[Rfam]
RNA sequence: AAAGAGGUCAACUAGGGUUCCGAUCUGUUGUUAACAGCACAGGUGACUGGUCCGAGAGUUGACGGCCUUUUCCAAGGCUACACGGCGGGACAAAAGCCCGGGAGAA
Numbered sequence: 001a002a003a004g005a006g007g008u009c010a011a012c013u014a015g016g017g018u019u020c021c022g023a024u025c026u027g028u029u030g031u032u033a034a035c036a037g038c039a040c041a042g043g044u045g046a047c048u049g050g051u052c053c054g055a056g057a058g059u060u061g062a063c064g065g066c067c068u069u070u071u072c073c074a075a076g077g078c079u080a081c082a083c084g085g086c087g088g089g090a091c092a093a094a095a096g097c098c099c100g101g102g103a104g105a106a
Stems, first nucleotide, its partner, number of pairs: 007063006015053002020050002022047001023044006064079006081101001083104001087099003
Dot-bracket structure: ......((((((..((...(((((((((..........))))))..).)).))....))))))((((((....)))))).(.[...(((.......))).)..]..

Rfam assigns this 106-nucleotide sequence from Marinobacter sp. BSs20148 to the family "Guanidine-I riboswitch aptamer". A search with the family's covariance model found it, with a score of 89 bits. This family represents a conserved RNA structure found upstream of the ykkC and yxkD genes in Bacillus subtilis and related genes in other bacteria. The pairing is the family consensus, mapped onto this sequence. Taxonomically the source falls in Marinobacter (Bacteria, Pseudomonadota, Gammaproteobacteria, Pseudomonadales).